[Rfam]
RNA sequence: CGAGUUGCAACGGGAGAGCUUGCUUUCCGCGCCGGGCGCAUUGUGCUUCCGGCCAGGAAAGUAGCGCCGUAGGAGCAAACCCUCCCCGGGAAUCUCUCAGGCCCAGUACCGCUGCAAUGAG
Numbered sequence: 001c002g003a004g005u006u007g008c009a010a011c012g013g014g015a016g017a018g019c020u021u022g023c024u025u026u027c028c029g030c031g032c033c034g035g036g037c038g039c040a041u042u043g044u045g046c047u048u049c050c051g052g053c054c055a056g057g058a059a060a061g062u063a064g065c066g067c068c069g070u071a072g073g074a075g076c077a078a079a080c081c082c083u084c085c086c087c088g089g090g091a092a093u094c095u096c097u098c099a100g101g102c103c104c105a106g107u108a109c110c111g112c113u114g115c116a117a118u119g120a121g
Stems, first nucleotide, its partner, number of pairs: 006116004011111003020064009066102003069098001073096003080088001